[Rfam]
Shown here is a 150-nucleotide RNA sequence from Pseudomonas knackmussii, a member of the family "PrrF RNA". Rfam's curators write: PrrF RNA is a small RNA involved in iron homeostasis and is found exclusively in Pseudomonas species. Rfam 15.1 lists 107 matches to the family in 85 species. Gene Ontology term of the family: sRNA-mediated gene silencing. A reference for the family is Wilderman et al. (2004), "Identification of tandem duplicate regulatory small RNAs in Pseudomonas aeruginosa involved in iron homeostasis", Proc Natl Acad Sci U S A.
RNA sequence: UUUACUCUCAAAUGAUAAUGAUUAUUAUUGGAUUAUCUGGUCGCGAGGCCAGACGAUAAGCUCAAGAGACCACGCAGUCGGACUCUUCAGAUUAUCUCCUCAUCAGGCUAAUCACGGAUUCGACCCGGCUCUUCGCCGGGUCUUUUUUUG
Number, nucleotide and partner (000 for none) at each position: 001u000002u000003u000004a000005c000006u000007c000008u000009c000010a000011a000012a000013u000014g000015a000016u000017a000018a000019u000020g000021a000022u000023u000024a000025u000026u000027a000028u000029u000030g000031g000032a000033u000034u055035a000036u053037c052038u051039g050040g049041u048042c047043g000044c000045g000046a000047g042048g041049c040050c039051a038052g037053a036054c000055g034056a000057u000058a000059a000060g000061c090062u089063c000064a087065a086066g085067a084068g083069a000070c080071c000072a000073c000074g000075c000076a000077g000078u000079c000080g070081g000082a000083c068084u067085c066086u065087u064088c000089a062090g061091a000092u000093u000094a000095u000096c000097u000098c107099c106100u105101c000102a000103u000104c000105a100106g099107g098108c000109u000110a000111a000112u000113c000114a000115c000116g000117g000118a000119u000120u000121c000122g142123a141124c140125c139126c138127g137128g136129c135130u000131c000132u000133u000134c000135g129136c128137c127138g126139g125140g124141u123142c122143u000144u000145u000146u000147u000148u000149u000150g000
The base pairs follow the family's consensus structure, which is taken from published work. Taxonomically the source falls in Pseudomonas knackmussii (Bacteria, Gammaproteobacteria, Pseudomonadales, Pseudomonadaceae).